Overview: HDV ribozyme from F. prausnitzii: a 70-nucleotide RNA sequence from Dinothrombium tinctorium. NCBI's taxonomy places the organism under Eukaryota, Opisthokonta, Metazoa, Anystina, Dinothrombium. For this family Rfam cites "Widespread occurrence of self-cleaving ribozymes" (Webb et al., Science, 2009). The match comes from Rfam's covariance-model search (44 bits).

RNA sequence: GAACGUCGGUUUGGCAACCUCCUCGUGGUGACGUUCGGGCAACGGAUGGAAAUCCGGUUUAUAGCCAAAG
Number, nucleotide and partner (000 for none) at each position: 001g036002a035003a034004c033005g032006u031007c030008g000009g000010u000011u000012u000013g000014g000015c000016a000017a029018c028019c027020u000021c000022c000023u000024c000025g000026u000027g019028g018029u017030g007031a006032c005033g004034u003035u002036c001037g000038g000039g000040c000041a000042a000043c056044g055045g054046a053047u052048g000049g000050a000051a000052a047053u046054c045055c044056g043057g000058u000059u000060u000061a000062u000063a000064g000065c000066c000067a000068a000069a000070g000